[Rfam]
RNA sequence: AAGAAAAAAUGGCAAAAUCACUUAAAAGUGAUGACGCAAAGCUUUAGGGGCCUCUGCCUUAGGGCAAAGCUAGCCAGCUACCAUC
Numbered sequence: 001a002a003g004a005a006a007a008a009a010u011g012g013c014a015a016a017a018u019c020a021c022u023u024a025a026a027a028g029u030g031a032u033g034a035c036g037c038a039a040a041g042c043u044u045u046a047g048g049g050g051c052c053u054c055u056g057c058c059u060u061a062g063g064g065c066a067a068a069g070c071u072a073g074c075c076a077g078c079u080a081c082c083a084u085c
Base pairs, nucleotide, nucleotide: 012037013036017032018031019030020029021028022027040079041078042077043076047075048074049071050070051069056065057064058063
Rfam assigns this 85-nucleotide RNA from Metabacillus litoralis to the family "c-di-GMP-I riboswitch aptamer". NCBI's taxonomy places the organism under Bacteria, Bacillati, Bacillota, Caryophanales, Metabacillus. GEMM was predicted in a large-scale screen for bacterial structured RNA regulatory elements. The family's consensus secondary structure is taken from published work.